Background: This 82-nucleotide RNA from Fukomys damarensis belongs to the Rfam family "Small nucleolar RNA SNORD11".

RNA sequence: GUGUUCAAUGAUGAUUUUUACUUAUUGUGCCUGAUUUCCUUUUGGACAAUGAAGGCAAUAGUCACUACCUCUUCUGAGACAC
Numbered sequence: 001g002u003g004u005u006c007a008a009u010g011a012u013g014a015u016u017u018u019u020a021c022u023u024a025u026u027g028u029g030c031c032u033g034a035u036u037u038c039c040u041u042u043u044g045g046a047c048a049a050u051g052a053a054g055g056c057a058a059u060a061g062u063c064a065c066u067a068c069c070u071c072u073u074c075u076g077a078g079a080c081a082c
Base pairs, nucleotide, nucleotide: 001082002081003080004079
A search with the family's covariance model found it, with a score of 93 bits. A reference for the family is Huttenhofer et al. (2001), "RNomics: an experimental approach that identifies 201 candidates for novel, small, non-messenger RNAs in mouse", EMBO J.